[Rfam]
RNA: SAM riboswitch aptamer (S box leader)
RNA sequence: AUCUUAUCCAGAGGGGUGGAGGGAUUCGGCCCGAUGAAACCCGGCAACCUGCGAUUUGAAGCAAGGUGCUAAUUCCGACAAAAUGGUUUCCAUUUUGGAAGAUAAGAU
Numbered sequence: 001a002u003c004u005u006a007u008c009c010a011g012a013g014g015g016g017u018g019g020a021g022g023g024a025u026u027c028g029g030c031c032c033g034a035u036g037a038a039a040c041c042c043g044g045c046a047a048c049c050u051g052c053g054a055u056u057u058g059a060a061g062c063a064a065g066g067u068g069c070u071a072a073u074u075c076c077g078a079c080a081a082a083a084u085g086g087u088u089u090c091c092a093u094u095u096u097g098g099a100a101g102a103u104a105a106g107a108u
Stems, first nucleotide, its partner, number of pairs: 001108008013042001015041003021032003026078004043070004048066002050063003074100001079097006